[Rfam]
This 89-nucleotide RNA from Reinekea blandensis belongs to the Rfam family "t44 RNA". The source organism's lineage runs through Bacteria, Pseudomonadati, Saccharospirillaceae, Reinekea and Reinekea blandensis. By type it is a small RNA. The base pairs follow the family's consensus structure, which was predicted with LocARNA.

Nucleotides: 089
Base pairs, nucleotide, nucleotide: 024079025078026077027076028075029074030073031072036070037069038068039067040066041065042064043063049061050060051059052058
Number, partner (000 for none) and nucleotide at each position: 001000c002000u003000g004000g005000g006000c007000a008000u009000u010000a011000a012000c013000u014000u015000a016000a017000c018000u019000u020000c021000u022000c023000a024079c025078a026077u027076g028075c029074u030073u031072c032000g033000a034000c035000a036070c037069a038068u039067g040066g041065u042064u043063c044000u045000g046000g047000g048000u049061g050060c051059c052058c053000g054000a055000a056000a057000g058052g059051g060050g061049u062000u063043g064042g065041a066040u067039c068038a069037u070036g071000g072031g073030a074029a075028g076027u077026g078025u079024g080000g081000a082000g083000g084000c085000c086000u087000a088000a089000c